[Rfam]
RNA sequence: ACUGUUUAACAAAUGGGAAGCGCGGACAUCAUGUUUAUAUCUCACAUAGUAUAACAUUAAAUUAUGAUGAAUCCGUACCUGGUCGGACUUCUACUAGGAGAUGGAACAAGUCAUUUCAGAAAACAGAACUAUGCGUAUUCUGUAUGGAUUGACCAGAUAGAAAGAAACCGAAAAAUUGUUGAAAAAGCGAAGAGAGAAUUCGAGAAAAUGGGAUUGAAAGUCCAUUUUUAUUCUCACGGAAUAAAUAAAAUCAGAGCAUUGGUUUAUUCCAAGGAAAUAUACAAUGAAUUUCGUGAGUUGAAGAAGAAUCCAGUUCUUUGCUUUGAAAAAUUGAGCAAAAAAGGAAAAUUUGAAUUCAUUUCUGGUUUUUUCGAUGCGGAAGGCACUGUCACAGACAGAUUGGUUUUGUAUAACGGUGACUUAGAGAUUAUCAACAAAAUCAAAGAAUUCAUAGCCAAAGAAUUGAACGUGGUAGGCAAUGUUUAUAGGUACGGAAAAAUAUAUGGUAUGCAGAUUUACAAACGAGACCAUAUUAAGAAAUUUGUAAAAAAUACUGAUUGCGUAAAAUUUUCCGUUCGUUCUUCCCAGUUAAAAAACAUA
Numbered sequence: 001a002c003u004g005u006u007u008a009a010c011a012a013a014u015g016g017g018a019a020g021c022g023c024g025g026a027c028a029u030c031a032u033g034u035u036u037a038u039a040u041c042u043c044a045c046a047u048a049g050u051a052u053a054a055c056a057u058u059a060a061a062u063u064a065u066g067a068u069g070a071a072u073c074c075g076u077a078c079c080u081g082g083u084c085g086g087a088c089u090u091c092u093a094c095u096a097g098g099a100g101a102u103g104g105a106a107c108a109a110g111u112c113a114u115u116u117c118a119g120a121a122a123a124c125a126g127a128a129c130u131a132u133g134c135g136u137a138u139u140c141u142g143u144a145u146g147g148a149u150u151g152a153c154c155a156g157a158u159a160g161a162a163a164g165a166a167a168c169c170g171a172a173a174a175a176u177u178g179u180u181g182a183a184a185a186a187g188c189g190a191a192g193a194g195a196g197a198a199u200u201c202g203a204g205a206a207a208a209u210g211g212g213a214u215u216g217a218a219a220g221u222c223c224a225u226u227u228u229u230a231u232u233c234u235c236a237c238g239g240a241a242u243a244a245a246u247a248a249a250a251u252c253a254g255a256g257c258a259u260u261g262g263u264u265u266a267u268u269c270c271a272a273g274g275a276a277a278u279a280u281a282c283a284a285u286g287a288a289u290u291u292c293g294u295g296a297g298u299u300g301a302a303g304a305a306g307a308a309u310c311c312a313g314u315u316c317u318u319u320g321c322u323u324u325g326a327a328a329a330a331u332u333g334a335g336c337a338a339a340a341a342a343g344g345a346a347a348a349u350u351u352g353a354a355u356u357c358a359u360u361u362c363u364g365g366u367u368u369u370u371u372c373g374a375u376g377c378g379g380a381a382g383g384c385a386c387u388g389u390c391a392c393a394g395a396c397a398g399a400u401u402g403g404u405u406u407u408g409u410a411u412a413a414c415g416g417u418g419a420c421u422u423a424g425a426g427a428u429u430a431u432c433a434a435c436a437a438a439a440u441c442a443a444a445g446a447a448u449u450c451a452u453a454g455c456c457a458a459a460g461a462a463u464u465g466a467a468c469g470u471g472g473u474a475g476g477c478a479a480u481g482u483u484u485a486u487a488g489g490u491a492c493g494g495a496a497a498a499a500u501a502u503a504u505g506g507u508a509u510g511c512a513g514a515u516u517u518a519c520a521a522a523c524g525a526g527a528c529c530a531u532a533u534u535a536a537g538a539a540a541u542u543u544g545u546a547a548a549a550a551a552u553a554c555u556g557a558u559u560g561c562g563u564a565a566a567a568u569u570u571u572c573c574g575u576u577c578g579u580u581c582u583u584c585c586c587a588g589u590u591a592a593a594a595a596a597c598a599u600a
Base pairs, nucleotide, nucleotide: 003598004597005596006595007594
Dot-bracket structure: ..(((((..........................................................................................................................................................................................................................................................................................................................................................................................................................................................................................................................................................................................................)))))..
The family of this 600-nucleotide part of an RNA from a Candidatus Aenigmatarchaeota archaeon is "Archaeal large subunit ribosomal RNA". Gene Ontology terms of the family: structural constituent of ribosome and ribosome. Taxonomically the source falls in Candidatus Aenigmatarchaeota (Archaea, Nanobdellati).